[Rfam]
RNA sequence: AAACAACCCCCUAUGUUUUGAUUCUUUGGCAGUUUUGGACCCCCAGUCCAUUGUUGACUCGGUCAACGCUGACGUGGCACCCUAAGUGAGGUGCCACGUGUCAAUAUUAUUUAUUUAUUUUUCCUUGGGGUCCAAAACUGCCAAAGAAUCAAAACAUAGGGGGCUGUUU
Numbered sequence: 001a002a003a004c005a006a007c008c009c010c011c012u013a014u015g016u017u018u019u020g021a022u023u024c025u026u027u028g029g030c031a032g033u034u035u036u037g038g039a040c041c042c043c044c045a046g047u048c049c050a051u052u053g054u055u056g057a058c059u060c061g062g063u064c065a066a067c068g069c070u071g072a073c074g075u076g077g078c079a080c081c082c083u084a085a086g087u088g089a090g091g092u093g094c095c096a097c098g099u100g101u102c103a104a105u106a107u108u109a110u111u112u113a114u115u116u117a118u119u120u121u122u123c124c125u126u127g128g129g130g131u132c133c134a135a136a137a138c139u140g141c142c143a144a145a146g147a148a149u150c151a152a153a154a155c156a157u158a159g160g161g162g163g164c165u166g167u168u169u
Base pairs, nucleotide, nucleotide: 001169002168004166005165007163008162012158013157014156015155016154017153018152019151020150021149022148023147024146025145026144027143028142029141030140031139032138033137034136035135036134037133038132039131040130041129042128043127045125072099073098075096076095077094078093079092080091081090

MIR2619 microRNA precursor family: a 169-nucleotide RNA from Medicago truncatula.